The record is an 80-nucleotide RNA from Rhipicephalus microplus, which matches "mir-965 microRNA precursor family" in Rfam. Rfam links the family to the GO terms RISC complex and miRNA-mediated post-transcriptional gene silencing. For this family Rfam cites "The regulation of silkworm fibroin L chain production by miRNA-965 and miRNA-1926 in insect cells" (Huang et al., Bioorg Khim, 2012). Lineage of the source: Eukaryota > Protostomia > Ixodoidea > Ixodidae > Boophilus. The family has 16 seed sequences and 224 matches in Rfam 15.1. The base pairs follow the family's consensus structure, which was predicted with RNAalifold.

RNA sequence: UUCAUCAGGGGAUGAGUUAUACUGACAUGAACAUGAGUUAUACUGACAGCUCAUGUCAGUAUAACUCAUCCCCUGAUGAA
Numbered sequence: 001u002u003c004a005u006c007a008g009g010g011g012a013u014g015a016g017u018u019a020u021a022c023u024g025a026c027a028u029g030a031a032c033a034u035g036a037g038u039u040a041u042a043c044u045g046a047c048a049g050c051u052c053a054u055g056u057c058a059g060u061a062u063a064a065c066u067c068a069u070c071c072c073c074u075g076a077u078g079a080a
Base pairs, nucleotide, nucleotide: 003078004077005076006075007074009072010071011070013068014067017064018063019062020061021060024057025056026055027054028053029052